[Rfam]
RNA: SAM riboswitch aptamer (S box leader)
RNA sequence: UUCUUAUCAAGAGAGGUGGAGGGACUGGCCCUAUGAAACCCGGCAACCUAUAAUAAGAGAAAAGUAACUCUUGUUAGUUUGGUGCUAAAUCCUGCAGCUGUAGCUGAGAGAUAAGGG
Numbered sequence: 001u002u003c004u005u006a007u008c009a010a011g012a013g014a015g016g017u018g019g020a021g022g023g024a025c026u027g028g029c030c031c032u033a034u035g036a037a038a039c040c041c042g043g044c045a046a047c048c049u050a051u052a053a054u055a056a057g058a059g060a061a062a063a064g065u066a067a068c069u070c071u072u073g074u075u076a077g078u079u080u081g082g083u084g085c086u087a088a089a090u091c092c093u094g095c096a097g098c099u100g101u102a103g104c105u106g107a108g109a110g111a112u113a114a115g116g117g
Base pairs, nucleotide, nucleotide: 001117002116003115004114005113006112007111008110013041015040016039017038021031022030023029025094027092028091042086043085044084045083047082048081051076052075053074054073055072056071057070058069059068090109095106096105097104098103